[Rfam]
RNA: Burkholderiales-2 RNA
RNA sequence: GCGCUGACCUGGCCCAUGCCCAGGAGCGCCAUUGCGCCGGACGAAUGCCCCUCGGGUGGGGCAAGCAACAUCGGC
Numbered sequence: 001g002c003g004c005u006g007a008c009c010u011g012g013c014c015c016a017u018g019c020c021c022a023g024g025a026g027c028g029c030c031a032u033u034g035c036g037c038c039g040g041a042c043g044a045a046u047g048c049c050c051c052u053c054g055g056g057u058g059g060g061g062c063a064a065g066c067a068a069c070a071u072c073g074g075c
Stems, first nucleotide, its partner, number of pairs: 001029003008024005036075005046063006